Overview: Rfam assigns this 137-nucleotide sequence from Marinisporobacter balticus to the family "Ribosomal protein L10 leader". The family's consensus secondary structure was predicted with CMfinder. The source organism's lineage runs through Bacteria, Bacillati, Bacillota, Peptostreptococcales and Marinisporobacter. Rfam describes the family as follows. This family is a putative r-protein leader autoregulatory structure found in B. subtilis and other low-GC Gram-positive bacteria. It scores 69 bits against the family's covariance model. It is annotated as a cis-regulatory leader.

[Rfam]
RNA sequence: ACAAAAUUUGAAUACAAACCGUAGACAGUAGGUGCCAUUUUGGUUUAAAUUUGCCUACCGAGGUAAUUAUUUAUAGAUUCGAAGAAACUAUAAGAACCUCUCUAUGUCUACGGUAGAGAGGUUCUGUUAUGAAUAUA
Number, nucleotide and partner (000 for none) at each position: 001a000002c000003a000004a000005a000006a000007u000008u000009u000010g000011a000012a000013u000014a000015c000016a000017a000018a000019c000020c000021g000022u000023a000024g000025a000026c000027a000028g058029u057030a056031g055032g054033u053034g044035c043036c042037a000038u000039u000040u000041u000042g036043g035044u034045u000046u000047a000048a000049a000050u000051u000052u000053g033054c032055c031056u030057a029058c028059c000060g000061a000062g000063g000064u000065a000066a000067u000068u000069a000070u000071u000072u000073a000074u000075a000076g000077a000078u000079u000080c000081g000082a000083a000084g000085a000086a000087a000088c000089u000090a000091u000092a000093a000094g000095a000096a122097c121098c120099u119100c118101u117102c116103u115104a114105u113106g000107u000108c000109u000110a000111c000112g000113g105114u104115a103116g102117a101118g100119a099120g098121g097122u096123u000124c000125u000126g000127u000128u000129a000130u000131g000132a000133a000134u000135a000136u000137a000